[Rfam]
RNA sequence: AAAAAGUUGGGGGUGUGGGGGAUAAAAUCCCCUGUCGCAUUAGAAGGGUGCUCAGAUGCACGUCUUAUGCAUCGUCGAAGGGAAA
Numbered sequence: 001a002a003a004a005a006g007u008u009g010g011g012g013g014u015g016u017g018g019g020g021g022a023u024a025a026a027a028u029c030c031c032c033u034g035u036c037g038c039a040u041u042a043g044a045a046g047g048g049u050g051c052u053c054a055g056a057u058g059c060a061c062g063u064c065u066u067a068u069g070c071a072u073c074g075u076c077g078a079a080g081g082g083a084a085a
Base pairs, nucleotide, nucleotide: 015035016034017033018032019031020030021029022028055073056072057071058070059069
Dot-bracket structure: ..............((((((((.....))))))))...................(((((.........)))))............
Source information
The family of this 85-nucleotide RNA from Anaeromonas frigoriresistens is "Clostridiales-2 RNA". A search with the family's covariance model found it, with a score of 71 bits. The family's consensus secondary structure is taken from published work. Rfam 15.1 lists 285 matches to the family in 26 species. The organism belongs to Anaeromonas, within Bacteria. It is annotated as a small RNA.